[Rfam]
RNA: Glycine riboswitch aptamer
RNA sequence: AAGUCCUCCGCGGAAGAGUCCGGCGCAGCGAUGCGUCGGCGCCGAAGGCGCAACCGCCCCGGAAACGCUCAGGCCAACGGACCGCGAGGGGAUG
Dot-bracket structure: .....((.(((((......((((((((....)))))))).(((((..(((...((.....))...))))).))).......))))).)).....